[Rfam]
RNA sequence: CCCUCUGAAGUUUCCCUCAGGAUAGCUGGUGCUCUCAAAAACCCAACCUCUCCCACGAAGUUUUAUCUGGUAAAGCGAAUGAUUAGAGGUCUUGGGGCCGAAAUGAUAUCAACCUAUUCUCAAACUUUAAAUGGGUAAGAAGCCCGGCUUGGUGGUGUGUAGCAGGGCGUGGAAUGCGAGUGCCUAGUGGGCCACUUUUGGUAAGCAGAACUGGCGCUGCGGGAUGAACCAAACGCCGGGUUAAGGAGCCCGAUGCUCGUCAGACCCUAGAAAAGGUGUUGGUUGAUGUAGACAGCAGGAUGGUGGCUAUGGAAGUCGGAAUCCGCUAGGGAGUGUGUAACAACUCACCUGCCAAAUCAACUAGCCCUGAAAAUGGAUGGCACUGGAGCAUCGGGCCCAUACCCGGCCGUUGCUGGCAGUCAAGAGUGGACGGGAGCAGCGGGGGUCGGCACGCGUGGGGGUGUAGCGUGUGGGGGGUCUCCCAUCCUCCUCCUCCCCCCCCGCCCGCCCCCGGAGCCCUGCGGACGCUACGCCACGAUGAGUACGAGGGC
Numbered sequence: 001c002c003c004u005c006u007g008a009a010g011u012u013u014c015c016c017u018c019a020g021g022a023u024a025g026c027u028g029g030u031g032c033u034c035u036c037a038a039a040a041a042c043c044c045a046a047c048c049u050c051u052c053c054c055a056c057g058a059a060g061u062u063u064u065a066u067c068u069g070g071u072a073a074a075g076c077g078a079a080u081g082a083u084u085a086g087a088g089g090u091c092u093u094g095g096g097g098c099c100g101a102a103a104u105g106a107u108a109u110c111a112a113c114c115u116a117u118u119c120u121c122a123a124a125c126u127u128u129a130a131a132u133g134g135g136u137a138a139g140a141a142g143c144c145c146g147g148c149u150u151g152g153u154g155g156u157g158u159g160u161a162g163c164a165g166g167g168c169g170u171g172g173a174a175u176g177c178g179a180g181u182g183c184c185u186a187g188u189g190g191g192c193c194a195c196u197u198u199u200g201g202u203a204a205g206c207a208g209a210a211c212u213g214g215c216g217c218u219g220c221g222g223g224a225u226g227a228a229c230c231a232a233a234c235g236c237c238g239g240g241u242u243a244a245g246g247a248g249c250c251c252g253a254u255g256c257u258c259g260u261c262a263g264a265c266c267c268u269a270g271a272a273a274a275g276g277u278g279u280u281g282g283u284u285g286a287u288g289u290a291g292a293c294a295g296c297a298g299g300a301u302g303g304u305g306g307c308u309a310u311g312g313a314a315g316u317c318g319g320a321a322u323c324c325g326c327u328a329g330g331g332a333g334u335g336u337g338u339a340a341c342a343a344c345u346c347a348c349c350u351g352c353c354a355a356a357u358c359a360a361c362u363a364g365c366c367c368u369g370a371a372a373a374u375g376g377a378u379g380g381c382a383c384u385g386g387a388g389c390a391u392c393g394g395g396c397c398c399a400u401a402c403c404c405g406g407c408c409g410u411u412g413c414u415g416g417c418a419g420u421c422a423a424g425a426g427u428g429g430a431c432g433g434g435a436g437c438a439g440c441g442g443g444g445g446u447c448g449g450c451a452c453g454c455g456u457g458g459g460g461g462u463g464u465a466g467c468g469u470g471u472g473g474g475g476g477g478u479c480u481c482c483c484a485u486c487c488u489c490c491u492c493c494u495c496c497c498c499c500c501c502c503g504c505c506c507g508c509c510c511c512c513g514g515a516g517c518c519c520u521g522c523g524g525a526c527g528c529u530a531c532g533c534c535a536c537g538a539u540g541a542g543u544a545c546g547a548g549g550g551c
Base pairs, nucleotide, nucleotide: 001550002549003548004547005546011024013022014021015020028184029183030182031181032180033179061140062139063138064137065136066135067134068133073128074126075125080122081121082120085117087115088114089113092112093111094110095109097107099105142168143167144166145165147163148162149161191215192214193213194212196210197209198208199207200206221230222229235407236406237405238404239403241401245397246396249394251393254390255389256388274368275367276366278365279364280363281362282361283360284359285358286357287356295352296351297350298349299348301325302324303323307319308318326330331346335344336343408540409539410538411537412536415534416533417532
RNA: Eukaryotic large subunit ribosomal RNA, nucleotides 1559 to 2109